[Rfam]
RNA sequence: GGACGGGUUCCUUUACGACGGAUCGUCCGGCACGUACCUGCCGGUGAAGGAAAGGCACAC
Numbered sequence: 001g002g003a004c005g006g007g008u009u010c011c012u013u014u015a016c017g018a019c020g021g022a023u024c025g026u027c028c029g030g031c032a033c034g035u036a037c038c039u040g041c042c043g044g045u046g047a048a049g050g051a052a053a054g055g056c057a058c059a060c
Base pairs, nucleotide, nucleotide: 009051010050011049012048013047014046015045027044028043029042030041031040032039

msiK RNA: a 60-nucleotide RNA sequence from Ornithinimicrobium sp. CNJ-824. The family's RNA type in Rfam is cis-regulatory element. NCBI's taxonomy places the organism under Bacteria, Bacillati, Actinomycetota, Micrococcales, Ornithinimicrobium. It scores 62 bits against the family's covariance model.